[Rfam]
This 109-nucleotide sequence from Brachypodium distachyon belongs to the Rfam family "small nucleolar RNA snoR127". NCBI's taxonomy places the organism under Eukaryota, Streptophyta, Spermatophyta, Poales, Brachypodium. It is annotated as a C/D-box small nucleolar RNA. The literature on the family includes a 2009 paper in Nucleic Acids Res by Chen and Wu, "Mining small RNA sequencing data: a new approach to identify small nucleolar RNAs in Arabidopsis". Pairs were carried over by alignment from the consensus structure, which was predicted with RNAalifold.

RNA sequence: CUUGGAUGAUGAAAGUUAGCCAAAUCAUAUUUUGAUGUGCUCCUCUAGAUACCAUUUUUAUCUGUUCCCCUGGUGAAGAUUCUUUUCUUUGCCAGGCACAGGCACAAGA
Numbered sequence: 001c002u003u004g005g006a007u008g009a010u011g012a013a014a015g016u017u018a019g020c021c022a023a024a025u026c027a028u029a030u031u032u033u034g035a036u037g038u039g040c041u042c043c044u045c046u047a048g049a050u051a052c053c054a055u056u057u058u059u060a061u062c063u064g065u066u067c068c069c070c071u072g073g074u075g076a077a078g079a080u081u082c083u084u085u086u087c088u089u090u091g092c093c094a095g096g097c098a099c100a101g102g103c104a105c106a107a108g109a
Base pairs, nucleotide, nucleotide: 001108002107003106004105